[Rfam]
RNA sequence: CAGUCCAGCUUUCAAUUUCUGCUCCUGCCAAAACUGUGGCAGAGAGCUUGGGGCUGGACGUAAAUAAAACACUCUUAUCUUAGGAGGGCUUCUUCAAGUGUUGAACUGCCCUCAAAGGCGCAAGAGAACAUC
Numbered sequence: 001c002a003g004u005c006c007a008g009c010u011u012u013c014a015a016u017u018u019c020u021g022c023u024c025c026u027g028c029c030a031a032a033a034c035u036g037u038g039g040c041a042g043a044g045a046g047c048u049u050g051g052g053g054c055u056g057g058a059c060g061u062a063a064a065u066a067a068a069a070c071a072c073u074c075u076u077a078u079c080u081u082a083g084g085a086g087g088g089c090u091u092c093u094u095c096a097a098g099u100g101u102u103g104a105a106c107u108g109c110c111c112u113c114a115a116a117g118g119c120g121c122a123a124g125a126g127a128a129c130a131u132c
Stems, first nucleotide, its partner, number of pairs: 001056003005053002021047003025042004072126005079118003084113006091105001093103001096101001